[Rfam]
RNA sequence: UAUUCUAGUGGGCAAACCUUGCGAAAGCAGGGGACGCAAAGCCAAGGGUCUAAGGGCAUUGCCUAUGACAGCCGGUUGCCGUA
Numbered sequence: 001u002a003u004u005c006u007a008g009u010g011g012g013c014a015a016a017c018c019u020u021g022c023g024a025a026a027g028c029a030g031g032g033g034a035c036g037c038a039a040a041g042c043c044a045a046g047g048g049u050c051u052a053a054g055g056g057c058a059u060u061g062c063c064u065a066u067g068a069c070a071g072c073c074g075g076u077u078g079c080c081g082u083a
Stems, first nucleotide, its partner, number of pairs: 012037002017032006040077004046073002048069003055063003
RNA: c-di-GMP-I riboswitch aptamer